[Rfam]
RNA sequence: CGGCUGAUGAUGAUUGAUCUCAAAGAUCUUAGCGGAUUUCAGAGAGGCCGCGCGUCGAUGAUCUGAUCUCUUGUUGUUACACACACUGAAGCCC
Numbered sequence: 001c002g003g004c005u006g007a008u009g010a011u012g013a014u015u016g017a018u019c020u021c022a023a024a025g026a027u028c029u030u031a032g033c034g035g036a037u038u039u040c041a042g043a044g045a046g047g048c049c050g051c052g053c054g055u056c057g058a059u060g061a062u063c064u065g066a067u068c069u070c071u072u073g074u075u076g077u078u079a080c081a082c083a084c085a086c087u088g089a090a091g092c093c094c
Stems, first nucleotide, its partner, number of pairs: 002093004
The record is a 94-nucleotide sequence from Elaeis guineensis, which matches "Small nucleolar RNA R11/Z151" in Rfam. A reference for the family is Barneche et al. (2001), "Identification of 66 box C/D snoRNAs in Arabidopsis thaliana: extensive gene duplications generated multiple isoforms predicting new ribosomal RNA 2'-O-methylation sites", J Mol Biol. Rfam 15.1 lists 802 matches to the family in 218 species. By type it is a C/D-box small nucleolar RNA. It scores 68 bits against the family's covariance model. Gene Ontology terms of the family: nucleolus and RNA processing.